[Rfam]
RNA sequence: GAAUGCACGCCUGAAAUUUUUCUCAAACCUUUGCUUUUAUGUGAAUAGGUGAGCAAAGUUUCAGGUGUAUUAA
Number, nucleotide and partner (000 for none) at each position: 001g000002a000003a000004u072005g071006c000007a000008c067009g066010c065011c064012u063013g062014a061015a000016a059017u058018u057019u056020u055021u000022c053023u052024c051025a050026a000027a000028c049029c048030u047031u000032u000033g000034c000035u000036u000037u000038u000039a000040u000041g000042u000043g000044a000045a000046u000047a030048g029049g028050u025051g024052a023053g022054c000055a020056a019057a018058g017059u016060u000061u014062c013063a012064g011065g010066u009067g008068u000069a000070u000071u005072a004073a000
The record is a 73-nucleotide RNA sequence from Rotaria magnacalcarata, which matches "mir-87 microRNA precursor family" in Rfam. On this family, see Stark et al., Genome Res 2007: "Systematic discovery and characterization of fly microRNAs using 12 Drosophila genomes".